[Rfam]
RNA: Alphaproteobacterial sRNA ar35
RNA sequence: AUACUUGUCGCAGGCGCCCAGCGCGUUACGGCGCAGCGGGAAGCCGGACAAGUCUUCAUCUCAAGCUUUGACCACGGAUGUAAUGGCAGGGCGGUGAGAUGACUGGAAAGGCCGGGAAUACCCGGCCUUUUUUCGU
Numbered sequence: 001a002u003a004c005u006u007g008u009c010g011c012a013g014g015c016g017c018c019c020a021g022c023g024c025g026u027u028a029c030g031g032c033g034c035a036g037c038g039g040g041a042a043g044c045c046g047g048a049c050a051a052g053u054c055u056u057c058a059u060c061u062c063a064a065g066c067u068u069u070g071a072c073c074a075c076g077g078a079u080g081u082a083a084u085g086g087c088a089g090g091g092c093g094g095u096g097a098g099a100u101g102a103c104u105g106g107a108a109a110g111g112c113c114g115g116g117a118a119u120a121c122c123c124g125g126c127c128u129u130u131u132u133u134c135g136u
Stems, first nucleotide, its partner, number of pairs: 003053007056102007065092002069088002072086003103135001105132011